RNA sequence: AAGGAAUUACGAAACUGGUUUUCAUAAUGAUUUGACAGAUUGUUCAAAUUCUGAGAUCAUUGUGAAAGCUGUUUUUUUGUU
Numbered sequence: 001a002a003g004g005a006a007u008u009a010c011g012a013a014a015c016u017g018g019u020u021u022u023c024a025u026a027a028u029g030a031u032u033u034g035a036c037a038g039a040u041u042g043u044u045c046a047a048a049u050u051c052u053g054a055g056a057u058c059a060u061u062g063u064g065a066a067a068g069c070u071g072u073u074u075u076u077u078u079g080u081u
Stems, first nucleotide, its partner, number of pairs: 009078001011076004016071010028059006
RNA: bantam microRNA precursor family
Organism: Papilio xuthus